[Rfam]
RNA sequence: GAGUUUAUUUUUGUGGCGAGGUUAACUGAAUGAAGCCGAAGCGAAAGCGAGUGUGAAAGCGCGUUAGUCACUGAUUUAAGACCUGAAGCCAGAUGAUCUAUUCCUGAGCAGGAUGAAGUUUUUCGAAAGAGAAAUGGAGGUCCGAACCGGUGUUGUGUACAUGCACUUGGAUGACUUGGGAUUAGGGGUGAAAAGCCACUCUAAUCUGGCGAUGGCUGGUU
Number, nucleotide and partner (000 for none) at each position: 001g000002a000003g000004u000005u079006u078007a077008u000009u000010u074011u073012u000013g071014u070015g069016g068017c067018g000019a000020g037021g036022u035023u034024a000025a000026c000027u000028g000029a000030a000031u000032g000033a000034a023035g022036c021037c020038g000039a000040a000041g048042c047043g000044a000045a000046a000047g042048c041049g000050a000051g000052u000053g000054u000055g000056a000057a000058a000059g000060c000061g000062c000063g000064u000065u000066a000067g017068u016069c015070a014071c013072u000073g011074a010075u000076u000077u007078a006079a005080g000081a000082c219083c218084u000085g216086a000087a000088g000089c209090c208091a207092g206093a205094u204095g000096a000097u000098c185099u184100a183101u000102u181103c180104c179105u178106g177107a176108g175109c173110a000111g143112g142113a141114u140115g000116a000117a000118g135119u134120u133121u132122u131123u130124c129125g000126a000127a000128a000129g124130a123131g122132a121133a120134a119135u118136g000137g000138a000139g000140g114141u113142c112143c111144g000145a000146a000147c170148c169149g168150g167151u000152g166153u165154u000155g164156u163157g000158u000159a000160c000161a000162u000163g156164c155165a153166c152167u150168u149169g148170g147171a000172u000173g109174a000175c108176u107177u106178g105179g104180g103181a102182u000183u100184a099185g098186g000187g197188g196189u195190g000191a000192a000193a000194a000195g189196c188197c187198a000199c000200u000201c000202u000203a000204a094205u093206c092207u091208g090209g089210c000211g000212a000213u000214g000215g000216c085217u000218g083219g082220u000221u000
Background:
A member of the RNA family "Archaeal large subunit ribosomal RNA" from Candidatus Psychracetigena formicireducens, 221 nucleotides of a longer RNA. Lineage of the source: Bacteria > Bacillati > Candidatus Lithacetigenota > Candidatus Psychracetigena. Its family is annotated with ribosome and structural constituent of ribosome in the Gene Ontology.